c-di-GMP-II-GAG riboswitch aptamer: a 90-nucleotide RNA sequence. The literature on the family includes a 2017 paper in Proc Natl Acad Sci U S A by Weinberg et al., "Bioinformatic analysis of riboswitch structures uncovers variant classes with altered ligand specificity". The family is grouped with related families in Rfam's "c-di-GMP_II riboswitch clan".
[Rfam]
RNA sequence: UGGUGGGGUAGAGGCUAGGAACCGCGUCCCGCAAGGUCGGGCACCUAUUAGGGCGCGGGGGAGCCAGUGGUGCGACCGGCUACCGUAACC
Numbered sequence: 001u002g003g004u005g006g007g008g009u010a011g012a013g014g015c016u017a018g019g020a021a022c023c024g025c026g027u028c029c030c031g032c033a034a035g036g037u038c039g040g041g042c043a044c045c046u047a048u049u050a051g052g053g054c055g056c057g058g059g060g061g062a063g064c065c066a067g068u069g070g071u072g073c074g075a076c077c078g079g080c081u082a083c084c085g086u087a088a089c090c
Stems, first nucleotide, its partner, number of pairs: 002090003006086001007084005013065003022058008039077002041073005